[Rfam]
RNA sequence: UAAGCACCUCGUUAGGUGAGGCGUCUACACGAAUACAGGCCACUGACCCCGAACGUCGAAAGACGCCCCGGGUCAGGACAGCUCCUCCCGGCUUAAGGGUUGAGCCCAGGUGGCUUCCGGCUCGGAUUGUCGUUCGGGCCAGGACACGUCGUGUGGUGUCAAAGCUCUGACGAGAGGGGUGCGGA
Numbered sequence: 001u002a003a004g005c006a007c008c009u010c011g012u013u014a015g016g017u018g019a020g021g022c023g024u025c026u027a028c029a030c031g032a033a034u035a036c037a038g039g040c041c042a043c044u045g046a047c048c049c050c051g052a053a054c055g056u057c058g059a060a061a062g063a064c065g066c067c068c069c070g071g072g073u074c075a076g077g078a079c080a081g082c083u084c085c086u087c088c089c090g091g092c093u094u095a096a097g098g099g100u101u102g103a104g105c106c107c108a109g110g111u112g113g114c115u116u117c118c119g120g121c122u123c124g125g126a127u128u129g130u131c132g133u134u135c136g137g138g139c140c141a142g143g144a145c146a147c148g149u150c151g152u153g154u155g156g157u158g159u160c161a162a163a164g165c166u167c168u169g170a171c172g173a174g175a176g177g178g179g180u181g182c183g184g185a
Stems, first nucleotide, its partner, number of pairs: 005181006011171002013096001015166003020160003025156008039114005045074005054065004081105004087099003116144003
This 185-nucleotide sequence from Mycobacterium avium belongs to the Rfam family "M-box riboswitch aptamer (ykoK leader)". From the family's description: M-box riboswitch, also know as ykoK leader is described as a metaloregulatory RNA that sense divalent metals and function as a genetic control element of genes related to divalent metal transport in bacteria. It was first reported upstream of the B.subtilis ykoK gene and genes with related functions in other bacteria. Pairs were carried over by alignment from the consensus structure.